RNA sequence: AUAAUACAUAAAGCUGCUUUAAAGCAGCUUCUUUUUAUGCAAAAAAACAGGCGCUCUACGAAAGAGCGCCCGAAUGGGAGAGGAGAAACCGGACGAAGAGCUUAUGGGGAAACGUAAGUCUUCUCCGCGG
Numbered sequence: 001a002u003a004a005u006a007c008a009u010a011a012a013g014c015u016g017c018u019u020u021a022a023a024g025c026a027g028c029u030u031c032u033u034u035u036u037a038u039g040c041a042a043a044a045a046a047a048c049a050g051g052c053g054c055u056c057u058a059c060g061a062a063a064g065a066g067c068g069c070c071c072g073a074a075u076g077g078g079a080g081a082g083g084a085g086a087a088a089c090c091g092g093a094c095g096a097a098g099a100g101c102u103u104a105u106g107g108g109g110a111a112a113c114g115u116a117a118g119u120c121u122u123c124u125c126c127g128c129g130g
Stems, first nucleotide, its partner, number of pairs: 011030008031078003035074001090127004095123004100119005

A member of the RNA family "ylbH leader" from Paenibacillus polymyxa, 130 nucleotides long. Gene Ontology term of the family: regulation of gene expression. Rfam classes the family as a cis-regulatory leader. Rfam's curators write: This family is a putative regulatory RNA structure that is found upstream of the ylbH gene in B. subtilis and related low GC Gram-positive bacteria. The literature on the family includes a 2004 paper in Proc Natl Acad Sci U S A by Barrick et al., "New RNA motifs suggest an expanded scope for riboswitches in bacterial genetic control". Lineage of the source: Bacteria > Bacillati > Caryophanales > Paenibacillaceae > Paenibacillus polymyxa.